[Rfam]
Shown here is a 73-nucleotide sequence from Solirubrobacter ginsenosidimutans, a member of the family "tRNA". A search with the family's covariance model found it, with a score of 64 bits.
RNA sequence: GUGGGCGUAGCUCAGUUGGUAGAGCUCCGGGUUGUGGUCCCGGCGGCCGCGGGUUCGAGUCCCGUCGCUCACC
Numbered sequence: 001g002u003g004g005g006c007g008u009a010g011c012u013c014a015g016u017u018g019g020u021a022g023a024g025c026u027c028c029g030g031g032u033u034g035u036g037g038u039c040c041c042g043g044c045g046g047c048c049g050c051g052g053g054u055u056c057g058a059g060u061c062c063c064g065u066c067g068c069u070c071a072c073c
Base pairs, nucleotide, nucleotide: 001072002071003070004069005068006067007066010025011024012023013022027043028042029041030040031039049065050064051063052062053061
Rfam classes the family as a transfer RNA.